[Rfam]
RNA sequence: GUAUCUGCUGAUGCAGCAUCAUCAAGAUUCUCAGAUGAUCCAAGCUUUCCAAGAUCAACAUGAAAUGAAGGAAGAACCUUCAUUAAUAAGAAAAGCUAAGAUUGUUUGUGAAUCUUGAAGAUGCUGCAUCUGCAAACAC
Numbered sequence: 001g002u003a004u005c006u007g008c009u010g011a012u013g014c015a016g017c018a019u020c021a022u023c024a025a026g027a028u029u030c031u032c033a034g035a036u037g038a039u040c041c042a043a044g045c046u047u048u049c050c051a052a053g054a055u056c057a058a059c060a061u062g063a064a065a066u067g068a069a070g071g072a073a074g075a076a077c078c079u080u081c082a083u084u085a086a087u088a089a090g091a092a093a094a095g096c097u098a099a100g101a102u103u104g105u106u107u108g109u110g111a112a113u114c115u116u117g118a119a120g121a122u123g124c125u126g127c128a129u130c131u132g133c134a135a136a137c138a139c
Base pairs, nucleotide, nucleotide: 010130011129012128013127014126015125016124017123018122019121020120022118023117024116025115026114027113028112029111030110032108033107034106035105036104037103038102039101040100

mir-172 microRNA precursor family: a 139-nucleotide sequence from Beta vulgaris. About the family: mir-172 has been experimentally verified in Arabidopsis thaliana. This family is thought to target mRNAs coding for APETALA2-like transcription factors. The mature sequence is excised from the 3' arm of the hairpin. A search with the family's covariance model found it, with a score of 75 bits. On this family, see Jones-Rhoades and Bartel, Mol Cell 2004: "Computational Identification of Plant MicroRNAs and Their Targets, Including a Stress-Induced miRNA". NCBI's taxonomy places the organism under Eukaryota, Embryophyta, Euphyllophyta, Gunneridae, Beta vulgaris.